[Rfam]
RNA sequence: CACACCAGAAGAGGUGCAAUUGCCAGGUAAAUAACUCGAGGAGCCAUCCAUUGACAGUUAUUGAGGGGGACAAUUGCCGAGAACAGUGGUAUGGGGGCAUAUCAUGUUCGGUCACUAAGGCUGAAUCCUUAGGGCUGUCACCACUAAAAAACACGUUUUUUUAGAUUUAGGUGGAGAGCUUCUGGCUGA
Number, nucleotide and partner (000 for none) at each position: 001c000002a000003c000004a000005c000006c184007a183008g182009a181010a180011g179012a000013g000014g000015u000016g077017c076018a075019a074020u073021u072022g071023c000024c069025a000026g000027g000028u000029a000030a062031a061032u060033a059034a058035c057036u056037c000038g000039a000040g000041g000042a000043g000044c000045c000046a000047u000048c000049c000050a000051u000052u000053g000054a000055c000056a036057g035058u034059u033060a032061u031062u030063g000064a000065g000066g000067g000068g000069g024070a000071c022072a021073a020074u019075u018076g017077c016078c000079g000080a000081g109082a108083a107084c106085a105086g000087u104088g103089g102090u101091a100092u099093g000094g000095g000096g000097g000098c000099a092100u091101a090102u089103c088104a087105u085106g084107u083108u082109c081110g136111g135112u134113c133114a000115c132116u131117a130118a129119g128120g127121c000122u000123g000124a000125a000126u000127c120128c119129u118130u117131a116132g115133g113134g112135c111136u110137g000138u174139c173140a172141c171142c170143a000144c000145u000146a000147a000148a000149a000150a000151a000152c000153a000154c000155g000156u000157u000158u000159u000160u000161u000162u000163a000164g000165a000166u000167u000168u000169a000170g142171g141172u140173g139174g138175a000176g000177a000178g000179c011180u010181u009182c008183u007184g006185g000186c000187u000188g000189a000
Shown here is a 189-nucleotide sequence from Colwellia chukchiensis, a member of the family "Lysine riboswitch aptamer". The organism belongs to Colwellia, within Bacteria. The match comes from Rfam's covariance-model search (96 bits).